[Rfam]
RNA sequence: UGAGUAGGAUAGAUGAUCGCUGCCAUGCAAACGAAAGGGCAUGGGAGAGGAAAGUCCGGGCUUCACAGGGCAGGAUGCCAGAUAACGUCUGGCGGAGGCAACUCCCGAGACAGUGCAACAGAAAUAUACCGCGUUAGCAAUGAGGCGGAGUCUCCGCCUCACUGAUCCGUAAGGGUGGAAAGGCAGUGUAAGAGACUACCGUGCCGGUGGUAACACCGGUAGCCAUGUAAACCUCAUCCGAAGCAAGACCGAAAAGAAAGCCAUGAGCCGGCCCGGUUCGCUUUCAGGUGGGUCGCUUGAGGCUGUCGGCGACGACAGUCCUAGAUAGAUGAUCAUCCACGACAUAACCCGGCUUACAGUCCUACUCUUAAA
Numbered sequence: 001u002g003a004g005u006a007g008g009a010u011a012g013a014u015g016a017u018c019g020c021u022g023c024c025a026u027g028c029a030a031a032c033g034a035a036a037g038g039g040c041a042u043g044g045g046a047g048a049g050g051a052a053a054g055u056c057c058g059g060g061c062u063u064c065a066c067a068g069g070g071c072a073g074g075a076u077g078c079c080a081g082a083u084a085a086c087g088u089c090u091g092g093c094g095g096a097g098g099c100a101a102c103u104c105c106c107g108a109g110a111c112a113g114u115g116c117a118a119c120a121g122a123a124a125u126a127u128a129c130c131g132c133g134u135u136a137g138c139a140a141u142g143a144g145g146c147g148g149a150g151u152c153u154c155c156g157c158c159u160c161a162c163u164g165a166u167c168c169g170u171a172a173g174g175g176u177g178g179a180a181a182g183g184c185a186g187u188g189u190a191a192g193a194g195a196c197u198a199c200c201g202u203g204c205c206g207g208u209g210g211u212a213a214c215a216c217c218g219g220u221a222g223c224c225a226u227g228u229a230a231a232c233c234u235c236a237u238c239c240g241a242a243g244c245a246a247g248a249c250c251g252a253a254a255a256g257a258a259a260g261c262c263a264u265g266a267g268c269c270g271g272c273c274c275g276g277u278u279c280g281c282u283u284u285c286a287g288g289u290g291g292g293u294c295g296c297u298u299g300a301g302g303c304u305g306u307c308g309g310c311g312a313c314g315a316c317a318g319u320c321c322u323a324g325a326u327a328g329a330u331g332a333u334c335a336u337c338c339a340c341g342a343c344a345u346a347a348c349c350c351g352g353c354u355u356a357c358a359g360u361c362c363u364a365c366u367c368u369u370a371a372a
Stems, first nucleotide, its partner, number of pairs: 002367009012337007020047002023044006052355003056352005061243004068274004073239005078092005093107001094105004108234002113232002115228003129174002131170003136166001138164002182200002185197003201223001202221008247294004256285006265279005301320008
Shown here is a 372-nucleotide RNA sequence from Butyrivibrio sp. M55, a member of the family "Bacterial RNase P class A".
The organism belongs to Butyrivibrio, within Bacteria.
Pairs were carried over by alignment from the consensus structure, which is taken from published work.
The match comes from Rfam's covariance-model search (305 bits).